The family of this 136-nucleotide RNA sequence from Myotis lucifugus is "Small nucleolar RNA SNORA48".
RNA sequence: UGUCCUUUACCUGGGUAGAGUGGCACCUGGUUUGGUGAUACUUGUCUUGAAUCAGCCAGGGACAGAAAAACUCCUUGUUUAUCCCAGCUUGGCUUUAGGUCUGUGCCCAUGCCUGGCUAAUGCCUUGGACCAUGUG
Numbered sequence: 001u002g003u004c005c006u007u008u009a010c011c012u013g014g015g016u017a018g019a020g021u022g023g024c025a026c027c028u029g030g031u032u033u034g035g036u037g038a039u040a041c042u043u044g045u046c047u048u049g050a051a052u053c054a055g056c057c058a059g060g061g062a063c064a065g066a067a068a069a070a071c072u073c074c075u076u077g078u079u080u081a082u083c084c085c086a087g088c089u090u091g092g093c094u095u096u097a098g099g100u101c102u103g104u105g106c107c108c109a110u111g112c113c114u115g116g117c118u119a120a121u122g123c124c125u126u127g128g129a130c131c132a133u134g135u136g
Base pairs, nucleotide, nucleotide: 001064002063003062004061005060006059007058011055012054013053014052018048019047020046022042023041025039027037077130078129079128080127081126091124092123093122099118101116102115103114105112106111
Annotation:
By type it is an H/ACA-box small nucleolar RNA. Gene Ontology terms of the family: nucleolus and RNA processing. The literature on the family includes a 1997 paper in J Mol Biol by Ofengand and Bakin, "Mapping to nucleotide resolution of pseudouridine residues in large subunit ribosomal RNAs from representative eukaryotes, prokaryotes, archaebacteria, mitochondria and chloroplasts". From the family's description: The snoRNA ACA 48 has been identified to guide pseudouridylation of the residue U3797 in the 28S rRNA subunit. Pairs were carried over by alignment from the consensus structure, which was predicted with RNAalifold. Lineage of the source: Eukaryota > Eumetazoa > Craniata > Gnathostomata > Myotis. Its Rfam clan is "SNORA48 clan".